[Rfam]
RNA sequence: GGCCAGCGGGAAAGAAAAAAUAUAGAAUGAAACUUCUAGUAUGGGCAAGCAGGGAGUUGGAAAGAUUUGCAAUUAACCCUGGCC
Numbered sequence: 001g002g003c004c005a006g007c008g009g010g011a012a013a014g015a016a017a018a019a020a021u022a023u024a025g026a027a028u029g030a031a032a033c034u035u036c037u038a039g040u041a042u043g044g045g046c047a048a049g050c051a052g053g054g055a056g057u058u059g060g061a062a063a064g065a066u067u068u069g070c071a072a073u074u075a076a077c078c079c080u081g082g083c084c
Stems, first nucleotide, its partner, number of pairs: 001084006008077001
HIV gag stem loop 3 (GSL3): an 84-nucleotide RNA from Lentivirus humimdef1. Pairs were carried over by alignment from the consensus structure, which was predicted with PFOLD. Rfam classes the family as a cis-regulatory element. Gene Ontology term of the family: viral RNA genome packaging. About the family: This family consists of several HIV gag stem loop 3 (GSL3) sequences. GSL3 is known to direct specific packaging of HIV-1 genomic RNA. Deletion of GSL3 leads to decreases in both viral RNA packaging and dimerisation.